The record is a 41-nucleotide RNA sequence from Chiloscyllium punctatum, which matches "MAT2A 3'UTR stem loop D" in Rfam. A reference for the family is Parker et al. (2011), "New families of human regulatory RNA structures identified by comparative analysis of vertebrate genomes", Genome Res. By type it is a cis-regulatory element. Lineage of the source: Eukaryota > Metazoa > Gnathostomata > Galeoidea > Chiloscyllium.

[Rfam]
RNA sequence: UCUGAGACUUGGCGUAGUUACAGAGAAGCCAUUGUCUCAGU
Numbered sequence: 001u002c003u004g005a006g007a008c009u010u011g012g013c014g015u016a017g018u019u020a021c022a023g024a025g026a027a028g029c030c031a032u033u034g035u036c037u038c039a040g041u
Stems, first nucleotide, its partner, number of pairs: 002040007010031004